RNA sequence: GUUAUCGGAUUCACCUUAAUCCACAUGUAUUGGGAUAGAUUGGGGUAUAAUUUAGUUCAAGUUUCACUCUAAUCCAAUCUAACACAUAUGGAUUGAUGCGAAUCCGACU
Dot-bracket structure: ....((((((((.(.((((((((.((((.(((...(.((((((.((...................)).)))))).)...))).)))).)))))))).).))))))))..
This 109-nucleotide RNA sequence from Miscanthus lutarioriparius belongs to the Rfam family "MIR5565 microRNA precursor family".
The base pairs follow the family's consensus structure, which was predicted with RNAalifold.